[Rfam]
RNA sequence: AGAUAACUCCUAUCCUCACGGUGAGGAUAGGAGUAACGGCUGUGUGGCACAGCCAUCGACACACUUGUUCGAUUCAGAAAGUGGAGCGUUCGCCCCGCGAGAACAGGUCGUGUCGUAGACCGGCAAAUAUCCCACCUGCGGUACGGGAAGCCCCGGCGUUCACGCCGGGGA
Numbered sequence: 001a002g003a004u005a006a007c008u009c010c011u012a013u014c015c016u017c018a019c020g021g022u023g024a025g026g027a028u029a030g031g032a033g034u035a036a037c038g039g040c041u042g043u044g045u046g047g048c049a050c051a052g053c054c055a056u057c058g059a060c061a062c063a064c065u066u067g068u069u070c071g072a073u074u075c076a077g078a079a080a081g082u083g084g085a086g087c088g089u090u091c092g093c094c095c096c097g098c099g100a101g102a103a104c105a106g107g108u109c110g111u112g113u114c115g116u117a118g119a120c121c122g123g124c125a126a127a128u129a130u131c132c133c134a135c136c137u138g139c140g141g142u143a144c145g146g147g148a149a150g151c152c153c154c155g156g157c158g159u160u161c162a163c164g165c166c167g168g169g170g171a
Stems, first nucleotide, its partner, number of pairs: 004036001007033004013027006038054005057115006064107007083096002086093002130148004135141002151170008